The record is a 77-nucleotide RNA sequence from Streptomyces sp. ICBB 8177, which matches "nrdJ RNA" in Rfam. The family's consensus secondary structure is taken from published work. Rfam classes the family as a small RNA.
RNA sequence: ACGUGCCGAGGCGCCGGGCGUGCCGAGGCUGCAGACAACAUCGUGACGCGGGAAGAACCGCGGCACUUCUGGGCGUU
Numbered sequence: 001a002c003g004u005g006c007c008g009a010g011g012c013g014c015c016g017g018g019c020g021u022g023c024c025g026a027g028g029c030u031g032c033a034g035a036c037a038a039c040a041u042c043g044u045g046a047c048g049c050g051g052g053a054a055g056a057a058c059c060g061c062g063g064c065a066c067u068u069c070u071g072g073g074c075g076u077u
Stems, first nucleotide, its partner, number of pairs: 005029003010024005043066003047062004